Notes: Hepatitis B virus post-transcriptional regulatory element 1151-1410: a 265-nucleotide RNA from Orthohepadnavirus longidigiti.
RNA sequence: UUAUCAGGCAGAAGCCGGCAAUCUGCCAGGUGUUUGCUGAUGCAACCCCCACUGGUUGGGGCCUGGUUAAUCAUUCCUCCGCAUGGUUACGCCAGGGACGGUUUCCCCGCCCCUUGCCUAUCCAUUGCGCGGAACUCAUUGCCGCCUGCCUUGCUCGCCGCUGGACGGGAGCUCGGGUUAUUGGAACUGACAAUUCCAUUGUUGCUUCGGGAAAGCGAACCUCUUUCCCAUGGCUGCUCGGCUGCGUUGCCAACUGGAUGCUUCG
Numbered sequence: 001u002u003a004u005c006a007g008g009c010a011g012a013a014g015c016c017g018g019c020a021a022u023c024u025g026c027c028a029g030g031u032g033u034u035u036g037c038u039g040a041u042g043c044a045a046c047c048c049c050c051a052c053u054g055g056u057u058g059g060g061g062c063c064u065g066g067u068u069a070a071u072c073a074u075u076c077c078u079c080c081g082c083a084u085g086g087u088u089a090c091g092c093c094a095g096g097g098a099c100g101g102u103u104u105c106c107c108c109g110c111c112c113c114u115u116g117c118c119u120a121u122c123c124a125u126u127g128c129g130c131g132g133a134a135c136u137c138a139u140u141g142c143c144g145c146c147u148g149c150c151u152u153g154c155u156c157g158c159c160g161c162u163g164g165a166c167g168g169g170a171g172c173u174c175g176g177g178u179u180a181u182u183g184g185a186a187c188u189g190a191c192a193a194u195u196c197c198a199u200u201g202u203u204g205c206u207u208c209g210g211g212a213a214a215g216c217g218a219a220c221c222u223c224u225u226u227c228c229c230a231u232g233g234c235u236g237c238u239c240g241g242c243u244g245c246g247u248u249g250c251c252a253a254c255u256g257g258a259u260g261c262u263u264c265g
Stems, first nucleotide, its partner, number of pairs: 001045002004042001007038005014031002018027001049086003055082002059078001061076001064073003096118002119260006129250004135244001137241001141237002144234003149176002153172004158168003184203002188201003209229006

Part of 500 base pair long HBV PRE, contains nucleotides 1151-1410. Enhances nuclear export of intronless transcripts and represses the splicing mechanism to a comparable degree to that of the full-length PRE. It was proposed to be the core HBV PRE element. contains 3 known regulatory elements: PRE SL-alpha (nucleotides 1292-1321), human La protein binding site (nucleotide 1275-1291) and SRE-1 (nucleotides 1252-1348). On this family, see Visootsat et al., Mol Biol Rep 2015: "A conserved RNA structural element within the hepatitis B virus post-transcriptional regulatory element enhance nuclear export of intronless transcripts and repress the splicing mechanism". The organism belongs to Orthohepadnavirus longidigiti, within Viruses. Its family is annotated with nuclear export and regulation of RNA splicing in the Gene Ontology.